The record is a 107-nucleotide RNA sequence from Quercus lobata, which matches "Small nucleolar RNA snoR109" in Rfam. Gene Ontology terms of the family: nucleolus and RNA processing. The base pairs follow the family's consensus structure, which was predicted with WAR. Rfam 15.1 lists 680 matches to the family in 220 species.
[Rfam]
RNA sequence: UGGCUGUAGCAAAAUCAAGCUUCUUUGAGAUAUUAACUGGCCGGUUGUUGUGAAAUCUCUUUGAUUUCUCUCUGUCAUCUAAUCUGCUUAUCGAACUUCUCACAUUC
Numbered sequence: 001u002g003g004c005u006g007u008a009g010c011a012a013a014a015u016c017a018a019g020c021u022u023c024u025u026u027g028a029g030a031u032a033u034u035a036a037c038u039g040g041c042c043g044g045u046u047g048u049u050g051u052g053a054a055a056u057c058u059c060u061u062u063g064a065u066u067u068c069u070c071u072c073u074g075u076c077a078u079c080u081a082a083u084c085u086g087c088u089u090a091u092c093g094a095a096c097u098u099c100u101c102a103c104a105u106u107c
Stems, first nucleotide, its partner, number of pairs: 027101004033095002039088003043084004047079001049077002